The record is a 272-nucleotide sequence from Fonsecaea erecta, which matches "Fungal signal recognition particle RNA" in Rfam.
RNA sequence: UGGCUGUCGUGGUCAAAAAGUUAGGAGGUUCUCUUGAGCCUGUGGGCGUCGCUUCACACUCACACUUGUUCAGUCGUGCCUUGCUCGGGAUUUCGGGUCGUUCAUCGUACUCGUGUGUGCAAACCACGAUGCUACGGAGCGCUAAGCAAUCGGAAGUGACACUUGAGGGAAGUAAUUCUGCAGAGGACCUUCCACCCGGAGUUGGCGAUGUGAGAUUACACACUGGCAAGAUAUGCGAAGUCCCAGGUUCGAUAUGGGCAACCAACUUUUUU
Numbered sequence: 001u002g003g004c005u006g007u008c009g010u011g012g013u014c015a016a017a018a019a020g021u022u023a024g025g026a027g028g029u030u031c032u033c034u035u036g037a038g039c040c041u042g043u044g045g046g047c048g049u050c051g052c053u054u055c056a057c058a059c060u061c062a063c064a065c066u067u068g069u070u071c072a073g074u075c076g077u078g079c080c081u082u083g084c085u086c087g088g089g090a091u092u093u094c095g096g097g098u099c100g101u102u103c104a105u106c107g108u109a110c111u112c113g114u115g116u117g118u119g120c121a122a123a124c125c126a127c128g129a130u131g132c133u134a135c136g137g138a139g140c141g142c143u144a145a146g147c148a149a150u151c152g153g154a155a156g157u158g159a160c161a162c163u164u165g166a167g168g169g170a171a172g173u174a175a176u177u178c179u180g181c182a183g184a185g186g187a188c189c190u191u192c193c194a195c196c197c198g199g200a201g202u203u204g205g206c207g208a209u210g211u212g213a214g215a216u217u218a219c220a221c222a223c224u225g226g227c228a229a230g231a232u233a234u235g236c237g238a239a240g241u242c243c244c245a246g247g248u249u250c251g252a253u254a255u256g257g258g259c260a261a262c263c264a265a266c267u268u269u270u271u272u
Stems, first nucleotide, its partner, number of pairs: 001015004016270007028259004036250002039247004044243004049238004067228003071225004076221003080214005085208003089203009099141001101138003105134001107132002111129005117124002142146001152193005162185003169178003
For this family Rfam cites "Prediction of signal recognition particle RNA genes" (Regalia et al., Nucleic Acids Res, 2002). The match comes from Rfam's covariance-model search (124 bits). The family is grouped with related families in Rfam's "SRP clan". Its family is annotated with signal recognition particle, endoplasmic reticulum targeting, SRP-dependent cotranslational protein targeting to membrane, signal sequence recognition and signal recognition particle, plasma membrane targeting in the Gene Ontology.